[Rfam]
RNA: FMN riboswitch aptamer (RFN element)
Organism: Sellimonas intestinalis
RNA sequence: AAAAUUCUUCGGGGUCGGGUGAAAGUCCCAACCGGCGGUGAAAGUCCGCGACCUGCCUUUUGGCGGCUGAUCCGGUGCAAUUCCGGAACCGACAGUACAGUCUGGAUGAGAGAAGAAAAUG
Numbered sequence: 001a002a003a004a005u006u007c008u009u010c011g012g013g014g015u016c017g018g019g020u021g022a023a024a025g026u027c028c029c030a031a032c033c034g035g036c037g038g039u040g041a042a043a044g045u046c047c048g049c050g051a052c053c054u055g056c057c058u059u060u061u062g063g064c065g066g067c068u069g070a071u072c073c074g075g076u077g078c079a080a081u082u083c084c085g086g087a088a089c090c091g092a093c094a095g096u097a098c099a100g101u102c103u104g105g106a107u108g109a110g111a112g113a114a115g116a117a118a119a120u121g
Base pairs, nucleotide, nucleotide: 005117006116007115008114009113010112017029018028019027031101032100033091034090035049036048037047038046044089045088053066054065071087072086073085074084075083093104094103095102